Rfam assigns this 512-nucleotide RNA sequence from Streptomyces sp. WM4235 to the family "Saccharopolyspora sRNA 350". Pairs were carried over by alignment from the consensus structure, which was predicted with RNAfold. Rfam links the family to the GO term regulation of secondary metabolite biosynthetic process. NCBI's taxonomy places the organism under Bacteria, Actinomycetota, Actinomycetes, Kitasatosporales, Streptomyces. Rfam classes the family as an antisense RNA.

RNA sequence: GUGGCGGUGUGGUCCCACCUCGCGUCGGCGUCCAGCAGGGCGUGCUCGCCGAACCGGUCGCCGUCGGCCAGUACGGCGAGUUCGACCUCGUCACCGUACUUGCCCACAGCCGUCUGGCCGACGCGGCCGUGGGCGAUCAGGUGGAUCUGCCCCGCCGGAGUGCCGCGCUCGACCAACACCUCUCCGGCACGGAAGUCACGCUGGACGCAACGGCCGGCGAGCGCGGUCAGUACGUCCACGUCGUCGAAGUCGCGCAGCAGGGCGAGUUCGCCGAGCUCGCGGGGGAUCACCCGGACGUGGGCCCCGUCCUGGACGAACUCGAUGCGCCCGUCGCCGACCGUGUAACUCAGUCGACGGUUCACCCGAUACGUGCCGCCCUUGGUCUCCACCCAGGGGAGCAUCCGCAGCAGCCACCGGGAGGUGAUCUCCUGCAUCUGAGGGGCGGACUUGGUCGUGGUGGCAAGGUUGCGGGCAGCCGCCGUGCCCAGGCUGCUCUGCCGGGGUUGCGACUG
Numbered sequence: 001g002u003g004g005c006g007g008u009g010u011g012g013u014c015c016c017a018c019c020u021c022g023c024g025u026c027g028g029c030g031u032c033c034a035g036c037a038g039g040g041c042g043u044g045c046u047c048g049c050c051g052a053a054c055c056g057g058u059c060g061c062c063g064u065c066g067g068c069c070a071g072u073a074c075g076g077c078g079a080g081u082u083c084g085a086c087c088u089c090g091u092c093a094c095c096g097u098a099c100u101u102g103c104c105c106a107c108a109g110c111c112g113u114c115u116g117g118c119c120g121a122c123g124c125g126g127c128c129g130u131g132g133g134c135g136a137u138c139a140g141g142u143g144g145a146u147c148u149g150c151c152c153c154g155c156c157g158g159a160g161u162g163c164c165g166c167g168c169u170c171g172a173c174c175a176a177c178a179c180c181u182c183u184c185c186g187g188c189a190c191g192g193a194a195g196u197c198a199c200g201c202u203g204g205a206c207g208c209a210a211c212g213g214c215c216g217g218c219g220a221g222c223g224c225g226g227u228c229a230g231u232a233c234g235u236c237c238a239c240g241u242c243g244u245c246g247a248a249g250u251c252g253c254g255c256a257g258c259a260g261g262g263c264g265a266g267u268u269c270g271c272c273g274a275g276c277u278c279g280c281g282g283g284g285g286a287u288c289a290c291c292c293g294g295a296c297g298u299g300g301g302c303c304c305c306g307u308c309c310u311g312g313a314c315g316a317a318c319u320c321g322a323u324g325c326g327c328c329c330g331u332c333g334c335c336g337a338c339c340g341u342g343u344a345a346c347u348c349a350g351u352c353g354a355c356g357g358u359u360c361a362c363c364c365g366a367u368a369c370g371u372g373c374c375g376c377c378c379u380u381g382g383u384c385u386c387c388a389c390c391c392a393g394g395g396g397a398g399c400a401u402c403c404g405c406a407g408c409a410g411c412c413a414c415c416g417g418g419a420g421g422u423g424a425u426c427u428c429c430u431g432c433a434u435c436u437g438a439g440g441g442g443c444g445g446a447c448u449u450g451g452u453c454g455u456g457g458u459g460g461c462a463a464g465g466u467u468g469c470g471g472g473c474a475g476c477c478g479c480c481g482u483g484c485c486c487a488g489g490c491u492g493c494u495c496u497g498c499c500g501g502g503g504u505u506g507c508g509a510c511u512g
Base pairs, nucleotide, nucleotide: 006390007389008388009387011385012384014382015381022325023324025322026321027320028319031316032315036311037310038309039308040307041306042305048302049301050300052298058229060227061226062225063224064223065112066111067110068109075103077102078101079100080099083096084095117222118221122217127212130209134203135202140197143196150191154188155187156186157185158184159183160182161178162177165174234296235295236294237293240290241289243287244286245285250282251281252280253279254278256277257276258275260271262269329342330341331340353377355375356374357373360372361371362370391431392430393429394428395427396426397425399423400422401421403418405416407415437476440473443470444469446467447465448464449463451461452460478510480506481505484502485501486500488498